[Rfam]
RNA sequence: CGCUGACUGUACUUCACAACGGAUCGUCCGGCACGUACCUGCCGGUGAAGGGAAUACCCA
Number, nucleotide and partner (000 for none) at each position: 001c000002g000003c000004u000005g000006a000007c000008u000009g000010u052011a000012c050013u049014u048015c047016a046017c000018a000019a000020c000021g000022g000023a000024u000025c000026g000027u000028c045029c044030g043031g042032c041033a040034c000035g000036u000037a000038c000039c000040u033041g032042c031043c030044g029045g028046u016047g015048a014049a013050g012051g000052g010053a000054a000055u000056a000057c000058c000059c000060a000
Shown here is a 60-nucleotide RNA from Dermabacter sp. HFH0086, a member of the family "msiK RNA". NCBI's taxonomy places the organism under Bacteria, Bacillati, Actinomycetota, Actinomycetes, Dermabacter. The family's RNA type in Rfam is cis-regulatory element.